[Rfam]
Nucleotides: 058
Base pairs, nucleotide, nucleotide: 006052007051009049010048011047012046022041023040026037027036028035029034
Number, partner (000 for none) and nucleotide at each position: 001000u002000c003000u004000g005000c006052g007051g008000a009049c010048c011047g012046g013000g014000c015000c016000c017000c018000u019000c020000u021000g022041a023040u024000u025000a026037a027036g028035g029034c030000a031000a032000a033000c034029g035028c036027c037026u038000c039000u040023a041022u042000g043000a044000u045000g046012u047011c048010g049009g050000a051007c052006c053000g054000c055000a056000u057000c058000g

This 58-nucleotide sequence from Rhizobium sp. Leaf371 belongs to the Rfam family "terC RNA".
Rfam classes the family as a cis-regulatory element.
A search with the family's covariance model found it, with a score of 46 bits.